This 86-nucleotide RNA sequence from Drosophila busckii belongs to the Rfam family "mir-927 microRNA precursor family". Lineage of the source: Eukaryota > Panarthropoda > Endopterygota > Schizophora > Dorsilopha. Rfam links the family to the GO terms RISC complex and miRNA-mediated post-transcriptional gene silencing. A reference for the family is Berezikov et al. (2010), "Evolutionary flux of canonical microRNAs and mirtrons in Drosophila", Nat Genet.
[Rfam]
RNA sequence: UGUCCACUGUAGUGUUUUAGAAUUCCUACGCUUUACCGUUGCAUAUGAAAGUUGGCAAAGCGUUUGGAUUCUGAAACAUUUGCUGG
Number, nucleotide and partner (000 for none) at each position: 001u000002g000003u000004c000005c000006a000007c000008u000009g000010u000011a079012g000013u000014g077015u076016u075017u074018u073019a072020g071021a070022a000023u068024u067025c066026c000027u000028a063029c062030g061031c060032u059033u058034u057035a000036c055037c054038g000039u000040u000041g000042c000043a000044u000045a000046u000047g000048a000049a000050a000051g000052u000053u000054g037055g036056c000057a034058a033059a032060g031061c030062g029063u028064u000065u000066g025067g024068a023069u000070u021071c020072u019073g018074a017075a016076a015077c014078a000079u011080u000081u000082g000083c000084u000085g000086g000